[Rfam]
RNA sequence: UUGGUCUUCUAAGUAGUAGUGCCGCAGGUGAUUGAAUUAGAUAAAAAAACGGUAAUUUACCUGCGCACGACUACUUCAUAGACCGA
Numbered sequence: 001u002u003g004g005u006c007u008u009c010u011a012a013g014u015a016g017u018a019g020u021g022c023c024g025c026a027g028g029u030g031a032u033u034g035a036a037u038u039a040g041a042u043a044a045a046a047a048a049a050c051g052g053u054a055a056u057u058u059a060c061c062u063g064c065g066c067a068c069g070a071c072u073a074c075u076u077c078a079u080a081g082a083c084c085g086a
Stems, first nucleotide, its partner, number of pairs: 001086007011076007019068001024064007
RNA: mir-252 microRNA precursor family
Organism: Dermatophagoides pteronyssinus